[Rfam]
RNA: R2 RNA element
Organism: Drosophila willistoni
RNA sequence: AUACUGUCCCCCCCUCCAGUUGGAUGGACCUUGCCUGCUACCUUGGCAUUACAUCUAAAAAGGUACAAACAUCGCAUUGGCAAAAAGAGGUGGUUUUAGUACAUAGGCGCUGUGGGACUUCAUUGUCCCGAUGAUGCAGCGAAUCGUGCAUACGAGAUUGUCCAGUAGUUGGUUGCUCGUAUCUUUAGAAGAUUUCCUUCCUCGGCGAUC
Numbered sequence: 001a002u003a004c005u006g007u008c009c010c011c012c013c014c015u016c017c018a019g020u021u022g023g024a025u026g027g028a029c030c031u032u033g034c035c036u037g038c039u040a041c042c043u044u045g046g047c048a049u050u051a052c053a054u055c056u057a058a059a060a061a062g063g064u065a066c067a068a069a070c071a072u073c074g075c076a077u078u079g080g081c082a083a084a085a086a087g088a089g090g091u092g093g094u095u096u097u098a099g100u101a102c103a104u105a106g107g108c109g110c111u112g113u114g115g116g117a118c119u120u121c122a123u124u125g126u127c128c129c130g131a132u133g134a135u136g137c138a139g140c141g142a143a144u145c146g147u148g149c150a151u152a153c154g155a156g157a158u159u160g161u162c163c164a165g166u167a168g169u170u171g172g173u174u175g176c177u178c179g180u181a182u183c184u185u186u187a188g189a190a191g192a193u194u195u196c197c198u199u200c201c202u203c204g205g206c207g208a209u210c
Stems, first nucleotide, its partner, number of pairs: 039065006071209005087203004092197002099149004108141006114129005151181006